Overview: Shown here is an 84-nucleotide RNA from Eubacteriaceae bacterium Marseille-Q4139, a member of the family "COG2827 RNA". The family's RNA type in Rfam is small RNA.
[Rfam]
RNA sequence: GCCGAUGCUUUAUAUAGAUCCGGGAAUCCAUGGUCUCCCGGGACGGUAAUGGUAUCCGAAACACGUGCCGUUACCGUUUACAUA
Number, nucleotide and partner (000 for none) at each position: 001g000002c000003c000004g000005a000006u000007g000008c000009u000010u000011u000012a000013u000014a000015u000016a000017g000018a000019u000020c000021c040022g039023g038024g037025a036026a000027u000028c000029c000030a000031u000032g000033g000034u000035c000036u025037c024038c023039c022040g021041g000042g078043a077044c076045g075046g074047u073048a072049a071050u070051g069052g068053u067054a066055u065056c000057c000058g000059a000060a000061a000062c000063a000064c000065g055066u054067g053068c052069c051070g050071u049072u048073a047074c046075c045076g044077u043078u042079u000080a000081c000082a000083u000084a000